[Rfam]
RNA: mir-137 microRNA precursor family
RNA sequence: CGCGGCCACGUGUAUUCUCGGGUAUAUAAUACGUCUGUUGCUGUUAUUGCUUAAGAAUACACGUAGCUGCG
Numbered sequence: 001c002g003c004g005g006c007c008a009c010g011u012g013u014a015u016u017c018u019c020g021g022g023u024a025u026a027u028a029a030u031a032c033g034u035c036u037g038u039u040g041c042u043g044u045u046a047u048u049g050c051u052u053a054a055g056a057a058u059a060c061a062c063g064u065a066g067c068u069g070c071g
Stems, first nucleotide, its partner, number of pairs: 001071005008064003012060007020052004026047006032040002